RNA: Retrovirus direct repeat 1 (dr1)
Organism: Rhinopomastus cyanomelas
RNA sequence: UGUAACGGGGCAAGGCUUAACCUAGAGGACAUAGCAUGUAUAGGCACAGUGCGGGGAUUUCUGGAUGUACAUGAUUAGGGUCCUCUUGAGA
Dot-bracket structure: (((......)))..........((((((((..........(((.((....(((............)))...)).)))..)))))).))...